ALIL pseudoknot: a 107-nucleotide sequence from Pseudooceanicola lipolyticus. Rfam classes the family as a cis-regulatory element.
RNA sequence: AGCGGGACGGAGCUCGACCGCCGGUCCAAGACAUGAUCGCCUUCAUCGAAGAACACCGUGACGAUAUCGGGGUCGAGCCGAUCUGCAGGCACCUGCCGAUUGCCCCU
Numbered sequence: 001a002g003c004g005g006g007a008c009g010g011a012g013c014u015c016g017a018c019c020g021c022c023g024g025u026c027c028a029a030g031a032c033a034u035g036a037u038c039g040c041c042u043u044c045a046u047c048g049a050a051g052a053a054c055a056c057c058g059u060g061a062c063g064a065u066a067u068c069g070g071g072g073u074c075g076a077g078c079c080g081a082u083c084u085g086c087a088g089g090c091a092c093c094u095g096c097c098g099a100u101u102g103c104c105c106c107u
Stems, first nucleotide, its partner, number of pairs: 006022001008020003069106004079102002082099002085096004